mir-9223 microRNA precursor family: a 75-nucleotide RNA from Myotis brandtii. Lineage of the source: Eukaryota > Gnathostomata > Amniota > Eutheria > Myotis. Rfam links the family to the GO terms miRNA-mediated post-transcriptional gene silencing and RISC complex.
RNA sequence: AGCAGUUCUCAGGUGACGCACCCCGGAAUCGGGCUUCCUCUUCUUUGGUUCCGGGUACAUCACCUGAGAACCGCA
Numbered sequence: 001a002g003c004a005g006u007u008c009u010c011a012g013g014u015g016a017c018g019c020a021c022c023c024c025g026g027a028a029u030c031g032g033g034c035u036u037c038c039u040c041u042u043c044u045u046u047g048g049u050u051c052c053g054g055g056u057a058c059a060u061c062a063c064c065u066g067a068g069a070a071c072c073g074c075a
Base pairs, nucleotide, nucleotide: 002074003073005071006070007069008068009067010066011065012064013063014062015061016060020056021055022054023053025052026051027050028049029048030047031046032045033044